The family of this 333-nucleotide RNA from Pseudescherichia vulneris is "RNase E 5' UTR element". It scores 252 bits against the family's covariance model. About the family: This family represents a conserved element found in the 5' UTR of RNase E mRNA. RNase E is a key regulatory enzyme in the pathway of mRNA degradation in E. coli that is able to auto-regulate the degradation of its own mRNA in response to changes in RNase E activity. This rne 5' UTR element acts as a sensor of cellular RNase E concentration enabling tight regulation of RNase E concentration and synthesis.
[Rfam]
RNA sequence: UUUUCCGCUUGAAUCUUGUUAAACAAGGAAAUUUGCGGAAUGACCAGUUUUGCCUGUCCGAUCAUCCACGCAGCAAUGGCGUAAGACGUAUUGAUCCUUCAGGCACUUAGCGGGCUGCGGGUUGCAGUCCUUACCGGUAGAGGGAUCGACCCUGGAGAGUAAUACCCAGGCAGUUCCCCUGAUAAUUGCGCUGUUUUUCCGUAUGAAAUACAGGCAACCGACACUCUGCGCCUCUUAAGCGUGCGAUAACCGUGAGGUUGGCGACGUGAACAGACACGAGGCCAUCGGUUCACCCCGGAAAGGCGUUAACUAUGCCCGCAGCCUAGUCGUCAA
Numbered sequence: 001u002u003u004u005c006c007g008c009u010u011g012a013a014u015c016u017u018g019u020u021a022a023a024c025a026a027g028g029a030a031a032u033u034u035g036c037g038g039a040a041u042g043a044c045c046a047g048u049u050u051u052g053c054c055u056g057u058c059c060g061a062u063c064a065u066c067c068a069c070g071c072a073g074c075a076a077u078g079g080c081g082u083a084a085g086a087c088g089u090a091u092u093g094a095u096c097c098u099u100c101a102g103g104c105a106c107u108u109a110g111c112g113g114g115c116u117g118c119g120g121g122u123u124g125c126a127g128u129c130c131u132u133a134c135c136g137g138u139a140g141a142g143g144g145a146u147c148g149a150c151c152c153u154g155g156a157g158a159g160u161a162a163u164a165c166c167c168a169g170g171c172a173g174u175u176c177c178c179c180u181g182a183u184a185a186u187u188g189c190g191c192u193g194u195u196u197u198u199c200c201g202u203a204u205g206a207a208a209u210a211c212a213g214g215c216a217a218c219c220g221a222c223a224c225u226c227u228g229c230g231c232c233u234c235u236u237a238a239g240c241g242u243g244c245g246a247u248a249a250c251c252g253u254g255a256g257g258u259u260g261g262c263g264a265c266g267u268g269a270a271c272a273g274a275c276a277c278g279a280g281g282c283c284a285u286c287g288g289u290u291c292a293c294c295c296c297g298g299a300a301a302g303g304c305g306u307u308a309a310c311u312a313u314g315c316c317c318g319c320a321g322c323c324u325a326g327u328c329g330u331c332a333a
Stems, first nucleotide, its partner, number of pairs: 003040006014028005051105006061095004068089003073080002112324011131301002134298004142178004151170005187216003191213004196208004217289005230282005244263002247260005